Rfam assigns this 97-nucleotide RNA sequence from Variimorphobacter saccharofermentans to the family "THF (Tetrahydrofolate) riboswitch aptamer". On this family, see Ames et al., Chem Biol 2010: "A eubacterial riboswitch class that senses the coenzyme tetrahydrofolate". About the family: Tetrahydrofolate (THF) riboswitch was first reported for Ames et al. as an RNA motif in 5' untranslated (5'-UTR)regions of folate transport and biosynthesis genes in Firmicutes genomes.
RNA sequence: AGCAGAGUAGGACCAUGUGCGUUAAGUGCCGGAUGAACAGGGAGUUGUCAACCGGACGAAAAGGAAACUUGCGGUAUAUGGUUCGCAUCCCGCUGCU
Numbered sequence: 001a002g003c004a005g006a007g008u009a010g011g012a013c014c015a016u017g018u019g020c021g022u023u024a025a026g027u028g029c030c031g032g033a034u035g036a037a038c039a040g041g042g043a044g045u046u047g048u049c050a051a052c053c054g055g056a057c058g059a060a061a062a063g064g065a066a067a068c069u070u071g072c073g074g075u076a077u078a079u080g081g082u083u084c085g086c087a088u089c090c091c092g093c094u095g096c097u
Base pairs, nucleotide, nucleotide: 001097002096003095004094005093010084011083012082013081014080015079016078017077018076019075020073021072022071026057027056029055030054031053032052034050035049036048040090041089042088044086061070062069063068